[Rfam]
The record is a 50-nucleotide RNA sequence from Polerovirus TUYV, which matches "Exoribonuclease-resistant RNA (xrRNA) plant-infecting virus (class 3)" in Rfam.
The literature on the family includes a 2024 paper in bioRxiv [Preprint] by Gezelle et al., "The pseudoknot structure of a viral RNA reveals a conserved mechanism for programmed exoribonuclease resistance".
Exoribonuclease-resistant RNA (xrRNA) plant-infecting virus (class 3) is a ncRNA that was reported in Plant viruses.
The source organism's lineage runs through Viruses, Riboviria, Orthornavirae, Solemoviridae and Polerovirus TUYV.
RNA sequence: AGUUAGCCCUACACACGUAAGUUGCAAGUAAGGGAAACAAAGUCUUACAC
Numbered sequence: 001a002g003u004u005a006g007c008c009c010u011a012c013a014c015a016c017g018u019a020a021g022u023u024g025c026a027a028g029u030a031a032g033g034g035a036a037a038c039a040a041a042g043u044c045u046u047a048c049a050c
Base pairs, nucleotide, nucleotide: 003036007034008033010032011029012028017048018047019046020045021044